[Rfam]
RNA: U1 spliceosomal RNA
RNA sequence: ACACUUACCUGACACCAUGAUCAGGCAGGUGUUUUUCCCAGGGCGAGGCUCAUCCCCUGCACUCCGGGUGUGCUGACCCCUGCGAUUUCCCCAAAUGCGGGAAACUCGACUGCAUAAUUUGUGGUACGGGGGGACUGCGUUUGCGCUCUCCACUG
Numbered sequence: 001a002c003a004c005u006u007a008c009c010u011g012a013c014a015c016c017a018u019g020a021u022c023a024g025g026c027a028g029g030u031g032u033u034u035u036u037c038c039c040a041g042g043g044c045g046a047g048g049c050u051c052a053u054c055c056c057c058u059g060c061a062c063u064c065c066g067g068g069u070g071u072g073c074u075g076a077c078c079c080c081u082g083c084g085a086u087u088u089c090c091c092c093a094a095a096u097g098c099g100g101g102a103a104a105c106u107c108g109a110c111u112g113c114a115u116a117a118u119u120u121g122u123g124g125u126a127c128g129g130g131g132g133g134a135c136u137g138c139g140u141u142u143g144c145g146c147u148c149u150c151c152a153c154u155g
Stems, first nucleotide, its partner, number of pairs: 013112002016031003040081004045077001047074003051070005083108003086104003090100002129154002132151003137146003